[Rfam]
Rfam assigns this 84-nucleotide sequence to the family "Twister_sister_ribozyme".
RNA sequence: UAACGCCGCAAGGCCCCGGCAAUCUGUCGGAUCGGUGGAAGCCCGAUGCCCGUCGAAAUGGCGGGCGGCGCUCAUGGCAAAAUC
Numbered sequence: 001u002a003a004c005g006c007c008g009c010a011a012g013g014c015c016c017c018g019g020c021a022a023u024c025u026g027u028c029g030g031a032u033c034g035g036u037g038g039a040a041g042c043c044c045g046a047u048g049c050c051c052g053u054c055g056a057a058a059u060g061g062c063g064g065g066c067g068g069c070g071c072u073c074a075u076g077g078c079a080a081a082a083u084c
Base pairs, nucleotide, nucleotide: 005078006077007076013069014068015067016041018028019027020026031047032046033045034044048066049065050064051063052062053061

Background
For this family Rfam cites "New classes of self-cleaving ribozymes revealed by comparative genomics analysis" (Weinberg et al., Nat Chem Biol, 2015). Gene Ontology term of the family: catalytic activity. The family's consensus secondary structure is taken from published work.